[Rfam]
RNA sequence: ACCCCACACUAAUUAAGCCGGCGUUUUUGAUGCAUCUUUAUCGGAAGCGUGUGCUCGUUGUGGGAAUAGCAAAGUCUGCGCAUUGUGUAUGGUUGUUUGGUUUUCUUCUAAAUUCAACCAAAGAAUUAGCGUAGGACA
Numbered sequence: 001a002c003c004c005c006a007c008a009c010u011a012a013u014u015a016a017g018c019c020g021g022c023g024u025u026u027u028u029g030a031u032g033c034a035u036c037u038u039u040a041u042c043g044g045a046a047g048c049g050u051g052u053g054c055u056c057g058u059u060g061u062g063g064g065a066a067u068a069g070c071a072a073a074g075u076c077u078g079c080g081c082a083u084u085g086u087g088u089a090u091g092g093u094u095g096u097u098u099g100g101u102u103u104u105c106u107u108c109u110a111a112a113u114u115c116a117a118c119c120a121a122a123g124a125a126u127u128a129g130c131g132u133a134g135g136a137c138a
Base pairs, nucleotide, nucleotide: 021050022049023048024047025046026045078132079131080130081129090120091119092118093117094116095115099113101111102110
Rfam assigns this 138-nucleotide RNA sequence from Trachymyrmex septentrionalis to the family "Small nucleolar RNA snoR639/H1". Rfam classes the family as an H/ACA-box small nucleolar RNA. The pairing is the family consensus, mapped onto this sequence. Rfam links the family to the GO terms RNA processing and nucleolus. NCBI's taxonomy places the organism under Eukaryota, Insecta, Hymenoptera, Formicidae, Trachymyrmex.